[Rfam]
RNA sequence: CAACCGGUGACAACCGUGUGAAUCAAGUCAAGUAGUGUAGUGAUUCACACGGUUCUCGCAAA
Numbered sequence: 001c002a003a004c005c006g007g008u009g010a011c012a013a014c015c016g017u018g019u020g021a022a023u024c025a026a027g028u029c030a031a032g033u034a035g036u037g038u039a040g041u042g043a044u045u046c047a048c049a050c051g052g053u054u055c056u057c058g059c060a061a062a
Stems, first nucleotide, its partner, number of pairs: 007059004012054013030041001
Description:
Shown here is a 62-nucleotide RNA sequence from Lactuca sativa, a member of the family "Plastid-ccsA-ndhD-1 3UTR RNA". By type it is a cis-regulatory element. The literature on the family includes a 2023 paper in Plant Commun by Richter et al., "Retrograde signaling in plants: A critical review focusing on the GUN pathway and beyond". A search with the family's covariance model found it, with a score of 60 bits. From the family's description: Plastid-ccsA-ndhD-1 is a non-coding RNA (ncRNA) recognised in plastids. It was found in the three prime untranslated region (3UTR) of ccsA and ndhD genes, its 3UTR location suggests a role in transcript maturation. Clan: Plastid-ccsA_ndhD 3UTR RNA clan. The base pairs follow the family's consensus structure, which was predicted with LocARNA.